[Rfam]
RNA sequence: CUGCAGUGAUGACUCUCUUAGGACACCUUUGGAUCAAAGAUGAAACUAACUUGUGAAACUGAGCAGC
Numbered sequence: 001c002u003g004c005a006g007u008g009a010u011g012a013c014u015c016u017c018u019u020a021g022g023a024c025a026c027c028u029u030u031g032g033a034u035c036a037a038a039g040a041u042g043a044a045a046c047u048a049a050c051u052u053g054u055g056a057a058a059c060u061g062a063g064c065a066g067c
Stems, first nucleotide, its partner, number of pairs: 001066004
RNA: Small nucleolar RNA SNORD58